The family of this 123-nucleotide RNA from Ewingella americana is "Histidine operon leader". Rfam links the family to the GO term histidine biosynthetic process. A search with the family's covariance model found it, with a score of 108 bits. Rfam's curators write: At least 6 amino acid operons are known to be regulated by attenuation. In each a leader sequence of 150-200 bp is found upstream of the first gene in the operon. This leader sequence can assume two different secondary structures known as the terminator and the anti-terminator structure. In each case the leader also codes for very short peptide sequence that is rich in the end product amino acid of the operon. The terminator structure is recognised as a termination signal for RNA polymerase and the operon is not transcribed. This structure forms when the cell has an excess of the regulatory amino acid and ribosome movement over the leader transcript is not impeded. When there is a deficiency of the charged tRNA of the regulatory amino acid the ribosome translating the leader peptide stalls and the antiterminator structure can form. This allows RNA polymerase to transcribe the operon. In the Rfam alignment the consensus structure is of the terminator structure. The literature on the family includes a 1982 paper in Annu Rev Genet by Kolter and Yanofsky, "Attenuation in amino acid biosynthetic operons". NCBI's taxonomy places the organism under Bacteria, Pseudomonadota, Enterobacterales, Yersiniaceae, Ewingella americana.
RNA sequence: CCAUCAUCACCAUCACCCUGACUAGUCUUUCAGGCGUUUGGUGCUGGAAGACUGUUAAGAUCUUCCAGUGGCGCAGAACCUAAAGAGAGCCCUCGGAAGAUUGUCUUCCGAGGGUUUUUUUUU
Number, nucleotide and partner (000 for none) at each position: 001c000002c000003a000004u000005c000006a000007u000008c043009a042010c041011c000012a038013u000014c036015a000016c000017c034018c033019u032020g031021a030022c000023u000024a000025g000026u000027c000028u000029u000030u021031c020032a019033g018034g017035c000036g014037u000038u012039u000040g000041g010042u009043g008044c068045u067046g066047g065048a064049a063050g062051a061052c000053u000054g000055u000056u000057a000058a000059g000060a000061u051062c050063u049064u048065c047066c046067a045068g044069u000070g000071g000072c000073g000074c000075a000076g000077a000078a000079c000080c000081u000082a000083a000084a120085g119086a118087g117088a116089g115090c114091c113092c112093u111094c110095g109096g108097a107098a106099g105100a000101u000102u000103g000104u000105c099106u098107u097108c096109c095110g094111a093112g092113g091114g090115u089116u088117u087118u086119u085120u084121u000122u000123u000